[Rfam]
RNA sequence: GUAAGCCGUGAUUGUCCAAACGCAAUUCUUGUGCCACGUAUAAUCAAGAACUGUGCUUGGACAUCUAUGCUUAG
Number, nucleotide and partner (000 for none) at each position: 001g000002u073003a072004a071005g070006c069007c000008g000009u000010g065011a064012u063013u000014g062015u061016c060017c059018a058019a000020a000021c055022g054023c053024a052025a000026u050027u049028c048029u047030u046031g045032u000033g000034c000035c000036a000037c000038g000039u000040a000041u000042a000043a000044u000045c031046a030047a029048g028049a027050a026051c000052u024053g023054u022055g021056c000057u000058u018059g017060g016061a015062c014063a012064u011065c010066u000067a000068u000069g006070c005071u004072u003073a002074g000
Annotation: The record is a 74-nucleotide RNA sequence from Oppiella nova, which matches "mir-219 microRNA precursor family" in Rfam. For this family Rfam cites "Vertebrate microRNA genes" (Lim et al., Science, 2003). It scores 68 bits against the family's covariance model. Its family is annotated with miRNA-mediated post-transcriptional gene silencing and RISC complex in the Gene Ontology. The family's consensus secondary structure was predicted with RNAalifold.